[Rfam]
RNA: MAT2A 3'UTR stem loop F
Organism: Bucco capensis
RNA sequence: CUGGGAUGUGGCAAAUUUGGCCGGUGUGGUACAGAGAAGCCGGCUUGUUUACCUGCCUGUCCUGG
Numbered sequence: 001c002u003g004g005g006a007u008g009u010g011g012c013a014a015a016u017u018u019g020g021c022c023g024g025u026g027u028g029g030u031a032c033a034g035a036g037a038a039g040c041c042g043g044c045u046u047g048u049u050u051a052c053c054u055g056c057c058u059g060u061c062c063u064g065g
Stems, first nucleotide, its partner, number of pairs: 001065007010057003014049003019045007026032002